The record is a 131-nucleotide RNA sequence from Cryobacterium fucosi, which matches "FMN riboswitch aptamer (RFN element)" in Rfam. The source organism's lineage runs through Bacteria, Bacillati, Actinomycetota, Micrococcales and Cryobacterium. Gene Ontology term of the family: FMN binding. The match comes from Rfam's covariance-model search (102 bits).
RNA sequence: AACGUGCUCCGGGGUCGGUGUAAGUCCGAACCGGCGGUGAAAGUCCGCGACCCGUUCCGCCCCAGGGCGAAACGGUUGAGCUGGUGAAAUUCCAGCACCGACGGUUAAAGUCCGGAUGAGAGGCGCACGAG
Numbered sequence: 001a002a003c004g005u006g007c008u009c010c011g012g013g014g015u016c017g018g019u020g021u022a023a024g025u026c027c028g029a030a031c032c033g034g035c036g037g038u039g040a041a042a043g044u045c046c047g048c049g050a051c052c053c054g055u056u057c058c059g060c061c062c063c064a065g066g067g068c069g070a071a072a073c074g075g076u077u078g079a080g081c082u083g084g085u086g087a088a089a090u091u092c093c094a095g096c097a098c099c100g101a102c103g104g105u106u107a108a109a110g111u112c113c114g115g116a117u118g119a120g121a122g123g124c125g126c127a128c129g130a131g
Base pairs, nucleotide, nucleotide: 003129004128005127006126007125009123010122016028017027018026030111031110032100033099034048035047036046037045043098044097052075053074054073055072080096081095082094083093084092102114103113104112